Shown here is a 59-nucleotide RNA from Agrobacterium fabrum, a member of the family "terC RNA".
Nucleotides: 059
Base pairs, nucleotide, nucleotide: 006053007052008051009050010049011048012047022042023041024040025039026038027037028036
Number, partner (000 for none) and nucleotide at each position: 001000a002000u003000c004000a005000g006053a007052a008051c009050u010049c011048g012047g013000g014000c015000c016000c017000c018000u019000c020000u021000g022042a023041c024040g025039u026038g027037u028036u029000a030000c031000c032000g033000g034000a035000c036028a037027a038026c039025a040024c041023g042022u043000g044000a045000u046000g047012u048011c049010g050009a051008g052007u053006u054000u055000c056000u057000u058000u059000a
By type it is a cis-regulatory element. Rfam 15.1 lists 1,112 matches to the family in 772 species.